[Rfam]
RNA sequence: ACAGAGUAAUGACCUAUGAAUUGACAGCCGGUGUUUGCUAUUGGACUGCCUGUCAGUUCUGUAGGCCACUGCCCUGU
Numbered sequence: 001a002c003a004g005a006g007u008a009a010u011g012a013c014c015u016a017u018g019a020a021u022u023g024a025c026a027g028c029c030g031g032u033g034u035u036u037g038c039u040a041u042u043g044g045a046c047u048g049c050c051u052g053u054c055a056g057u058u059c060u061g062u063a064g065g066c067c068a069c070u071g072c073c074c075u076g077u
Base pairs, nucleotide, nucleotide: 001077002076003075004074006072007071008070010068011067013065014064015063016062018059019058020057021056022055023054024053025052026051027050029048030047031046
Record summary: The record is a 77-nucleotide sequence from Anguilla anguilla, which matches "mir-192/215 microRNA precursor family" in Rfam. Its family is annotated with miRNA-mediated post-transcriptional gene silencing and RISC complex in the Gene Ontology. Rfam describes the family as follows. This family represents the human microRNA (miRNA) precursors mir-192 and mir-215. Animal miRNAs are transcribed as ~70nt precursors and subsequently processed by the Dicer enzyme to give a ~22nt product. In this case the mature sequence comes from the 5' arm of the precursor. The extents of the hairpin precursors are not generally known and are estimated based on hairpin prediction. The base pairs follow the family's consensus structure, which was predicted with PFOLD. The match comes from Rfam's covariance-model search (76 bits).